[Rfam]
RNA sequence: AACAAGCUGCGUUAGGGAUUGAAACGACAUCCUUUUUGUUUUAAGAUUUCUUUUUCAGAAAUCUUAAAACAAAAAGAUAUAGUGAAAAGCCCGACCAAGC
Numbered sequence: 001a002a003c004a005a006g007c008u009g010c011g012u013u014a015g016g017g018a019u020u021g022a023a024a025c026g027a028c029a030u031c032c033u034u035u036u037u038g039u040u041u042u043a044a045g046a047u048u049u050c051u052u053u054u055u056c057a058g059a060a061a062u063c064u065u066a067a068a069a070c071a072a073a074a075a076g077a078u079a080u081a082g083u084g085a086a087a088a089g090c091c092c093g094a095c096c097a098a099g100c
Base pairs, nucleotide, nucleotide: 015092016091017090019088020087024083025082029078030077031076035073036072037071038070039069040068041067042066043065044064045063046062047061048060049059050058051057